[Rfam]
RNA sequence: CUUCUUCGAUCUGCUGCGGGCAGAUGAAAUGGAUGUGCGCGUCGAUGCCGCCGGCGGUGACGAUCAUCCCCUCGCCGGCGAUGAUCUCGGUGCUGCCGCCGAUGGCGAUCGUCACGCCCGGCUGGAUGUCCGCGUUGCCGGCCUUGCCGAUGGCGCUGAUCCGUCCGCCCUUGAUGCCGAUGUCGGCCUUGACGAUUCCCCAGUGGUCGACGAUCAGCGCGUUGGUGAUCACCGUAUCGGCGACCUCCGCGGCGCUCAGCUGGCCCUGCCCCAUGCCGUCGCGAAUG
Numbered sequence: 001c002u003u004c005u006u007c008g009a010u011c012u013g014c015u016g017c018g019g020g021c022a023g024a025u026g027a028a029a030u031g032g033a034u035g036u037g038c039g040c041g042u043c044g045a046u047g048c049c050g051c052c053g054g055c056g057g058u059g060a061c062g063a064u065c066a067u068c069c070c071c072u073c074g075c076c077g078g079c080g081a082u083g084a085u086c087u088c089g090g091u092g093c094u095g096c097c098g099c100c101g102a103u104g105g106c107g108a109u110c111g112u113c114a115c116g117c118c119c120g121g122c123u124g125g126a127u128g129u130c131c132g133c134g135u136u137g138c139c140g141g142c143c144u145u146g147c148c149g150a151u152g153g154c155g156c157u158g159a160u161c162c163g164u165c166c167g168c169c170c171u172u173g174a175u176g177c178c179g180a181u182g183u184c185g186g187c188c189u190u191g192a193c194g195a196u197u198c199c200c201c202a203g204u205g206g207u208c209g210a211c212g213a214u215c216a217g218c219g220c221g222u223u224g225g226u227g228a229u230c231a232c233c234g235u236a237u238c239g240g241c242g243a244c245c246u247c248c249g250c251g252g253c254g255c256u257c258a259g260c261u262g263g264c265c266c267u268g269c270c271c272c273a274u275g276c277c278g279u280c281g282c283g284a285a286u287g
Stems, first nucleotide, its partner, number of pairs: 001287001003285001005283001007281003011158001013156002016154002018076002022072002030053003034050002037048003057069001059067001077148002081144001083142001085140001090138003094134003098129001099125002102123001103121001105119001107117001163270001166268002171259004177252002186220002189217003200209001223249003230242001232240003
RNA: 5' ureB small RNA